Shown here is a 62-nucleotide sequence from Octodon degus, a member of the family "pemK RNA".
Rfam classes the family as a cis-regulatory element.
RNA sequence: UUAAUGGUACUUUUGUAUCCCAAAGCCUGACAAAAAUUGGGAGGAGAAAAAAAUUUCUAUGU
Numbered sequence: 001u002u003a004a005u006g007g008u009a010c011u012u013u014u015g016u017a018u019c020c021c022a023a024a025g026c027c028u029g030a031c032a033a034a035a036a037u038u039g040g041g042a043g044g045a046g047a048a049a050a051a052a053a054u055u056u057c058u059a060u061g062u
Stems, first nucleotide, its partner, number of pairs: 012059001013025002016022001026044003031039002045058003